[Rfam]
RNA sequence: UGGGCAGUAUCCCUGGAACUGCACCUGCAUGAACUUGAAUCUGAAAACAAAUUUCUGCCUUGAUCCAGUAUGCUGGACGGGGACGGAGGG
Numbered sequence: 001u002g003g004g005c006a007g008u009a010u011c012c013c014u015g016g017a018a019c020u021g022c023a024c025c026u027g028c029a030u031g032a033a034c035u036u037g038a039a040u041c042u043g044a045a046a047a048c049a050a051a052u053u054u055c056u057g058c059c060u061u062g063a064u065c066c067a068g069u070a071u072g073c074u075g076g077a078c079g080g081g082g083a084c085g086g087a088g089g090g
Base pairs, nucleotide, nucleotide: 002025003024004022005021006020007019008018010017011016055086056085057084058082059081060080061079062078064077065076066075067074068073
The family of this 90-nucleotide RNA sequence from Bacillus sp. V59.32b is "pan motif". By type it is a cis-regulatory element. A search with the family's covariance model found it, with a score of 61 bits.